RNA sequence: CUCUUAUUAAGAACUACUAGAUGAAGAUCAAUGAUGUAGUGGCAACCCUAUAUUUAGAAGGUGCCUGACUGAGCAAGUUUCAACUUGAACAAUGAGAG
Dot-bracket structure: ((((((((....(((((..(((...[)))......)))))((((.(((((....)))..))))))....]...(((((....)))))...))))))))
The family of this 98-nucleotide sequence from Thomasclavelia cocleata is "SAM riboswitch aptamer (S box leader)". NCBI's taxonomy places the organism under Bacteria, Bacillati, Bacillota, Coprobacillaceae, Thomasclavelia. The family's consensus secondary structure is taken from published work.